This 96-nucleotide RNA from Zingiber officinale belongs to the Rfam family "mir-166 microRNA precursor family". From the family's description: This family represents the plant microRNA (miRNA) precursor mir-166. Rfam 15.1 lists 2,599 matches to the family in 229 species. The literature on the family includes a 2002 paper in Genes Dev by Reinhart et al., "MicroRNAs in plants". Gene Ontology terms of the family: miRNA-mediated post-transcriptional gene silencing and RISC complex. NCBI's taxonomy places the organism under Eukaryota, Viridiplantae, Streptophyta, Mesangiospermae, Zingiber.
RNA sequence: UUUGUGGGGAAUGUUGUCUGGCUCGAGGCCACGCAGGGGAUCGAUCUCAUUCGUCUCUGCCGGCGGGAUCUCGGACCAGGCUUCAUUCCCCUCAAC
Number, nucleotide and partner (000 for none) at each position: 001u000002u095003u094004g093005u000006g091007g090008g089009g088010a087011a086012u085013g084014u000015u000016g081017u080018c079019u078020g077021g076022c000023u000024c073025g072026a071027g070028g069029c000030c000031a000032c000033g000034c000035a000036g000037g000038g000039g000040a000041u000042c000043g000044a000045u000046c000047u000048c000049a000050u000051u000052c000053g000054u000055c000056u000057c000058u000059g000060c000061c000062g000063g000064c000065g000066g000067g000068a000069u028070c027071u026072c025073g024074g000075a000076c021077c020078a019079g018080g017081c016082u000083u000084c013085a012086u011087u010088c009089c008090c007091c006092u000093c004094a003095a002096c000